[Rfam]
Shown here is a 90-nucleotide RNA, a member of the family "sodF sRNA". A reference for the family is Kim et al. (2014), "Inverse regulation of Fe- and Ni-containing SOD genes by a Fur family regulator Nur through small RNA processed from 3'UTR of the sodF mRNA", Nucleic Acids Res. The family's RNA type in Rfam is small RNA.

RNA sequence: ACCUCCUGCUUGCGUGAUCGUCUUCUCACCGAACACCGGGCAGGCGGAAAAAAGGGGCCCCCGCGCGGUCGACUCGCGCGGGGGCCCCGC
Numbered sequence: 001a002c003c004u005c006c007u008g009c010u011u012g013c014g015u016g017a018u019c020g021u022c023u024u025c026u027c028a029c030c031g032a033a034c035a036c037c038g039g040g041c042a043g044g045c046g047g048a049a050a051a052a053a054g055g056g057g058c059c060c061c062c063g064c065g066c067g068g069u070c071g072a073c074u075c076g077c078g079c080g081g082g083g084g085c086c087c088c089g090c
Stems, first nucleotide, its partner, number of pairs: 002046001005044007014036003020030001054088014